[Rfam]
RNA sequence: AGCAUUGACGAAUGCUACCGUAGAAGUCCGCCUGGUUUUAUAACUACGGAUA
Numbered sequence: 001a002g003c004a005u006u007g008a009c010g011a012a013u014g015c016u017a018c019c020g021u022a023g024a025a026g027u028c029c030g031c032c033u034g035g036u037u038u039u040a041u042a043a044c045u046a047c048g049g050a051u052a
Stems, first nucleotide, its partner, number of pairs: 001016006

The family of this 52-nucleotide sequence from Listeria monocytogenes is "mcrA RNA". It is one of the family's seed sequences. The family's consensus secondary structure is taken from published work. Lineage of the source: Bacteria > Bacillati > Bacillota > Listeriaceae > Listeria monocytogenes. It is annotated as a small RNA.